[Rfam]
RNA sequence: UCUAGAACUCAAGAUAUGGGCUGAACACUAAAUAGUGUUUGGGCUGCAAGACAGCUUCGGACUUCUUCGGUGUUCCUUCAAUUUGGACUUCGAAACGACCUUUUUAAAUCUUGGGCUCUUCAUGAAAGUUGUAGGCCUUUGUCUUACCUUUCCAUC
Numbered sequence: 001u002c003u004a005g006a007a008c009u010c011a012a013g014a015u016a017u018g019g020g021c022u023g024a025a026c027a028c029u030a031a032a033u034a035g036u037g038u039u040u041g042g043g044c045u046g047c048a049a050g051a052c053a054g055c056u057u058c059g060g061a062c063u064u065c066u067u068c069g070g071u072g073u074u075c076c077u078u079c080a081a082u083u084u085g086g087a088c089u090u091c092g093a094a095a096c097g098a099c100c101u102u103u104u105u106a107a108a109u110c111u112u113g114g115g116c117u118c119u120u121c122a123u124g125a126a127a128g129u130u131g132u133a134g135g136c137c138u139u140u141g142u143c144u145u146a147c148c149u150u151u152c153c154a155u156c
Stems, first nucleotide, its partner, number of pairs: 003154001005152003009146001011145006018138003021134003025130001027129003035123003041119003045115001048112004054105001059100002063097001068092002072088003